[Rfam]
RNA sequence: GGCCGUCUGCGACUCUUUCCCUGUUGCACUACUGUCCAACUUUACACCUAGCAGUGCAAUAAUGAAAGGGCGUCAGCCGCUCC
Dot-bracket structure: ((..(.(((...(((((((..(((((((((......................)))))))))..)))))))...))).)...))
mir-130 microRNA precursor family: an 83-nucleotide sequence from Phrynocephalus forsythii. Rfam links the family to the GO terms RISC complex and miRNA-mediated post-transcriptional gene silencing. Taxonomically the source falls in Phrynocephalus (Eukaryota, Euteleostomi, Acrodonta, Agaminae).